[Rfam]
RNA sequence: ACAACCUGGGUCUGUGGUUGAAAGUCGAUGCCAGUUGCAGGCCAAACGAUCCACGUAAGCAGCGGAAAUCCGCUGUGAGCACGGUGCAGCUUAGACGUAAGUCCUGCCGCGUAAGCGAGAGAACGAGUAGUGGGGAGCGGAACGCUUAGGAGCGAAACUUCCAGCAGGCGAGUGUGGGGGCGAAAACCAGGUCAGCCGGGGGGU
Number, nucleotide and partner (000 for none) at each position: 001a204002c203003a000004a000005c200006c199007u198008g197009g196010g000011u000012c195013u194014g193015u189016g188017g187018u186019u185020g000021a000022a000023a000024g000025u000026c000027g000028a175029u174030g173031c041032c000033a091034g090035u089036u088037g087038c086039a085040g000041g031042c000043c000044a000045a000046a000047c000048g000049a000050u084051c083052c000053a000054c000055g000056u000057a000058a076059g000060c000061a000062g000063c000064g070065g000066a000067a000068a000069u000070c064071c000072g000073c000074u000075g000076u058077g000078a000079g000080c000081a000082c182083g051084g050085u039086g038087c037088a036089g035090c034091u033092u000093a000094g000095a000096c000097g000098u000099a000100a000101g000102u000103c168104c167105u166106g165107c164108c117109g116110c115111g000112u000113a000114a000115g110116c109117g108118a000119g000120a000121g161122a160123a159124c000125g000126a000127g000128u000129a000130g153131u152132g000133g000134g000135g000136a146137g145138c144139g000140g000141a000142a000143c000144g138145c137146u136147u000148a000149g000150g000151a000152g131153c130154g000155a000156a000157a000158c000159u123160u122161c121162c000163a000164g107165c106166a105167g104168g103169c000170g000171a000172g000173u030174g029175u028176g000177g000178g000179g000180g000181c000182g082183a000184a000185a019186a018187c017188c016189a015190g000191g000192u000193c014194a013195g012196c009197c008198g007199g006200g005201g000202g000203g002204u001